[Rfam]
RNA sequence: CCCAGGGCGUUGCCCUGGGCUGGUAUAUUACGCCCUUUCAGGGCC
Numbered sequence: 001c002c003c004a005g006g007g008c009g010u011u012g013c014c015c016u017g018g019g020c021u022g023g024u025a026u027a028u029u030a031c032g033c034c035c036u037u038u039c040a041g042g043g044c045c
Stems, first nucleotide, its partner, number of pairs: 001019008032044005
Dot-bracket structure: ((((((((...))))))))............(((((...))))).
RNA: Acido-Lenti-1 RNA